[Rfam]
RNA sequence: UAAAUCCAAAACAACGAAAGCCCUUCCUCUCUCUCGUCCUUACGGCUCCUAGGCCGUGCCAGUGAGAUUUGUCUUAGCAAAACAAUG
Numbered sequence: 001u002a003a004a005u006c007c008a009a010a011a012c013a014a015c016g017a018a019a020g021c022c023c024u025u026c027c028u029c030u031c032u033c034u035c036g037u038c039c040u041u042a043c044g045g046c047u048c049c050u051a052g053g054c055c056g057u058g059c060c061a062g063u064g065a066g067a068u069u070u071g072u073c074u075u076a077g078c079a080a081a082a083c084a085a086u087g
Base pairs, nucleotide, nucleotide: 034067035066039062040061041058042057043056044055045054046053047052

This 87-nucleotide RNA from Lederbergia citrea belongs to the Rfam family "BsrC". Lineage of the source: Bacteria > Bacillota > Caryophanales > Bacillaceae > Lederbergia. The family has 29 seed sequences and 572 matches in Rfam 15.1. From the family's description: The 301 nucleotide sequence from Kouji Nakamura has been trimmed to a highly conserved ~85 nucleotide long core to form this family. The family's RNA type in Rfam is small RNA. For this family Rfam cites "Novel small RNA-encoding genes in the intergenic regions of Bacillus subtilis" (Saito et al., Gene, 2008).